RNA sequence: CAGUAGUGCUGUGACUGACGGGUAUACGCGGGCAACCGCGGGGGAGCAGCGCGAACAUACUCAGUGCCGACCGUCUGGGCAAGCCGU
Number, nucleotide and partner (000 for none) at each position: 001c000002a000003g000004u054005a000006g052007u051008g050009c049010u048011g047012u046013g000014a000015c043016u042017g075018a074019c073020g072021g071022g000023u000024a000025u000026a000027c000028g039029c038030g037031g036032g000033c000034a000035a000036c031037c030038g029039c028040g000041g000042g016043g015044g000045a000046g012047c011048a010049g009050c008051g007052c006053g000054a004055a000056c000057a000058u000059a000060c000061u000062c000063a000064g000065u081066g080067c079068c078069g000070a000071c021072c020073g019074u018075c017076u000077g000078g068079g067080c066081a065082a000083g000084c000085c000086g000087u000
The family of this 87-nucleotide sequence is "ZMP/ZTP riboswitch aptamer (pfl RNA motif)". Its family is annotated with one-carbon metabolic process and regulation of purine nucleotide biosynthetic process in the Gene Ontology. Rfam's curators put it in the seed alignment.